[Rfam]
RNA: NoRC associated RNA, pRNA
Organism: Bos taurus
RNA sequence: AGAUGUGGAUUGGAUUAGGAGCAGGUGGCUUAGCCCUCAGGCUUCCUGGGUGACCCUGGGCCAGUCCCUUUCCUUCUCUGGGUCAGGGUG
Numbered sequence: 001a002g003a004u005g006u007g008g009a010u011u012g013g014a015u016u017a018g019g020a021g022c023a024g025g026u027g028g029c030u031u032a033g034c035c036c037u038c039a040g041g042c043u044u045c046c047u048g049g050g051u052g053a054c055c056c057u058g059g060g061c062c063a064g065u066c067c068c069u070u071u072c073c074u075u076c077u078c079u080g081g082g083u084c085a086g087g088g089u090g
Stems, first nucleotide, its partner, number of pairs: 004087001006085001008084002011082001018079004027068002030064002033061003037058001